[Rfam]
RNA sequence: CAAGGCAAUGCGGGAGAGUCUAACCUGCGGUGACGCGGAUUAGCGCCGACGGAGCAACCCCCCGGAAUCUCUCAGGCUCAAGGACUGUAUUGCUGGA
Numbered sequence: 001c002a003a004g005g006c007a008a009u010g011c012g013g014g015a016g017a018g019u020c021u022a023a024c025c026u027g028c029g030g031u032g033a034c035g036c037g038g039a040u041u042a043g044c045g046c047c048g049a050c051g052g053a054g055c056a057a058c059c060c061c062c063c064g065g066a067a068u069c070u071c072u073c074a075g076g077c078u079c080a081a082g083g084a085c086u087g088u089a090u091u092g093c094u095g096g097a
Stems, first nucleotide, its partner, number of pairs: 006092008020043004045077003048073002052071003058065002

The family of this 97-nucleotide RNA sequence from Microvirga sp. VF16 is "Glycine riboswitch aptamer". The base pairs follow the family's consensus structure. The match comes from Rfam's covariance-model search (61 bits). Rfam 15.1 lists 9,425 matches to the family in 5,228 species. NCBI's taxonomy places the organism under Bacteria, Pseudomonadati, Pseudomonadota, Hyphomicrobiales, Microvirga.